[Rfam]
The record is a 144-nucleotide RNA sequence from Yoonia rosea, which matches "FMN riboswitch aptamer (RFN element)" in Rfam. It scores 116 bits against the family's covariance model.
RNA sequence: GCGCAUUCUCAGGGCGGGGUGGAAUUCCCCACCGGCGGUAUGUGGUUAUGCCAUGAGCCCGCGAGCGCCUUCCACUUGGAAGGGUCAGCAGAUCAGGUGCGACGCCUGAGCCGACGGUCAUAGUCCGGAUGAAAGAGAAUGCGG
Number, nucleotide and partner (000 for none) at each position: 001g000002c000003g142004c141005a140006u139007u138008c137009u136010c135011a000012g000013g000014g000015c000016g000017g029018g028019g027020u000021g000022g000023a000024a000025u000026u000027c019028c018029c017030c000031a124032c123033c113034g112035g062036c061037g060038g059039u000040a000041u000042g000043u000044g000045g000046u000047u000048a000049u000050g000051c000052c000053a000054u000055g000056a000057g111058c110059c038060c037061g036062c035063g000064a000065g089066c088067g000068c000069c000070u000071u000072c000073c000074a000075c000076u000077u000078g000079g000080a000081a000082g000083g000084g000085u000086c000087a000088g066089c065090a000091g000092a000093u109094c108095a107096g106097g105098u000099g000100c000101g000102a000103c000104g000105c097106c096107u095108g094109a093110g058111c057112c034113g033114a000115c127116g126117g125118u000119c000120a000121u000122a000123g032124u031125c117126c116127g115128g000129a000130u000131g000132a000133a000134a000135g010136a009137g008138a007139a006140u005141g004142c003143g000144g000

Lineage of the source: Bacteria > Pseudomonadota > Alphaproteobacteria > Paracoccaceae > Yoonia.